[Rfam]
RNA sequence: AAAAUACCGUUGAGGGAGCAUAGUAAUUAAGAUCAUCUAUGAACAGAGAGGAUGUGCCAUAGGCUGUAAGCGCAUCUACAUGGACCUUAAUGAAUGAACACUCCUAAGGUGCUUUACUGAACGAGGAAAUGACCUUUAUUAGGUAGAGCCGUCUAACAGGCGUUAACUGUUUGAAGUGGAAGAACGUAUAUACGUUCUUCAAUUAGGGUGGCACCACGGGAUAUAUACUCUCGUCCCUGAU
Numbered sequence: 001a002a003a004a005u006a007c008c009g010u011u012g013a014g015g016g017a018g019c020a021u022a023g024u025a026a027u028u029a030a031g032a033u034c035a036u037c038u039a040u041g042a043a044c045a046g047a048g049a050g051g052a053u054g055u056g057c058c059a060u061a062g063g064c065u066g067u068a069a070g071c072g073c074a075u076c077u078a079c080a081u082g083g084a085c086c087u088u089a090a091u092g093a094a095u096g097a098a099c100a101c102u103c104c105u106a107a108g109g110u111g112c113u114u115u116a117c118u119g120a121a122c123g124a125g126g127a128a129a130u131g132a133c134c135u136u137u138a139u140u141a142g143g144u145a146g147a148g149c150c151g152u153c154u155a156a157c158a159g160g161c162g163u164u165a166a167c168u169g170u171u172u173g174a175a176g177u178g179g180a181a182g183a184a185c186g187u188a189u190a191u192a193c194g195u196u197c198u199u200c201a202a203u204u205a206g207g208g209u210g211g212c213a214c215c216a217c218g219g220g221a222u223a224u225a226u227a228c229u230c231u232c233g234u235c236c237c238u239g240a241u
Stems, first nucleotide, its partner, number of pairs: 007109002015104004026091006039081003050077008112148007150162003179200007205238004216234005